Rfam assigns this 97-nucleotide sequence from Lewinella sp. 4G2 to the family "Bacteroidales small SRP".

[Rfam]
RNA sequence: UUGCCCCGGGCAGCAUACGAACAGCUCCUUUUGAACUCCCCCAGGGCGGAAACGCAGCAAGGGUAGAAGGUUGAGCGUUCGGUAUGCUUGCCUUUUU
Numbered sequence: 001u002u003g004c005c006c007c008g009g010g011c012a013g014c015a016u017a018c019g020a021a022c023a024g025c026u027c028c029u030u031u032u033g034a035a036c037u038c039c040c041c042c043a044g045g046g047c048g049g050a051a052a053c054g055c056a057g058c059a060a061g062g063g064u065a066g067a068a069g070g071u072u073g074a075g076c077g078u079u080c081g082g083u084a085u086g087c088u089u090g091c092c093u094u095u096u097u
Base pairs, nucleotide, nucleotide: 008093009092010091011090012089013087014086015085016084017083018081019080020079021078
Rfam classes the family as a non-coding RNA gene. The organism belongs to Lewinella, within Bacteria. Clan: SRP clan.